[Rfam]
RNA: TPP riboswitch aptamer (THI element)
RNA sequence: UUGUAGUGCUAGGGGUGCCUUUUGGCUGAGAGAAGUAAAAAACUUUAACCCUUUGAACCUGAUACGGAUAACACCGACGGAGGGAAGCUGUUUGGAAUGAAU
Dot-bracket structure: .......(((((((..(((....)))......((((.....))))...)))).....(((....(((......)))....)))..)))..............